This 79-nucleotide sequence from Peribacillus psychrosaccharolyticus belongs to the Rfam family "Glycine riboswitch aptamer". A search with the family's covariance model found it, with a score of 54 bits. The base pairs follow the family's consensus structure. The literature on the family includes a 2004 paper in Science by Mandal et al., "A glycine-dependent riboswitch that uses cooperative binding to control gene expression".

[Rfam]
RNA sequence: GGAGCAGCUUCUGGAGAGACUGUACAAAGUACAGCGCCGAAGGAUUCAUAAUCUCAGGCAAAAGGACAGAAGAGUAACG
Numbered sequence: 001g002g003a004g005c006a007g008c009u010u011c012u013g014g015a016g017a018g019a020c021u022g023u024a025c026a027a028a029g030u031a032c033a034g035c036g037c038c039g040a041a042g043g044a045u046u047c048a049u050a051a052u053c054u055c056a057g058g059c060a061a062a063a064g065g066a067c068a069g070a071a072g073a074g075u076a077a078c079g
Base pairs, nucleotide, nucleotide: 008072009071010070011069012068013067020034021033022032023031036059037058038057039055040054043053044052045051